[Rfam]
Shown here is a 76-nucleotide RNA sequence from Pararge aegeria, a member of the family "mir-190 microRNA precursor family". It scores 65 bits against the family's covariance model. Its Rfam clan is "mir-50 clan". Gene Ontology terms of the family: miRNA-mediated post-transcriptional gene silencing and RISC complex.

RNA sequence: GUGUCGGUAAGAUAUGUUUGAUAUUCUUGGUUGUUUUUUGUAUCACCCGGGAAUCAAACAUAUUACCUACCGCUCG
Number, nucleotide and partner (000 for none) at each position: 001g000002u000003g000004u000005c072006g071007g070008u069009a068010a000011g064012a063013u062014a061015u060016g059017u058018u057019u056020g055021a054022u053023a000024u051025u050026c000027u000028u000029g048030g047031u000032u045033g044034u000035u000036u000037u000038u000039u000040g000041u000042a000043u000044c033045a032046c000047c030048c029049g000050g025051g024052a000053a022054u021055c020056a019057a018058a017059c016060a015061u014062a013063u012064u011065a000066c000067c000068u009069a008070c007071c006072g005073c000074u000075c000076g000